[Rfam]
RNA: S-element
Organism: Brucella anthropi
RNA sequence: UGUCAAGAGUCAUAGCGUCAUUUUGGCGGGUGGAUUUCUUUUGCCUUUCGAAAGGUAAGAGGAAAUG
Numbered sequence: 001u002g003u004c005a006a007g008a009g010u011c012a013u014a015g016c017g018u019c020a021u022u023u024u025g026g027c028g029g030g031u032g033g034a035u036u037u038c039u040u041u042u043g044c045c046u047u048u049c050g051a052a053a054g055g056u057a058a059g060a061g062g063a064a065a066u067g
Base pairs, nucleotide, nucleotide: 010063011062013058017056018055019054021053022052023051024050025049026048028046030044031043032042033041034040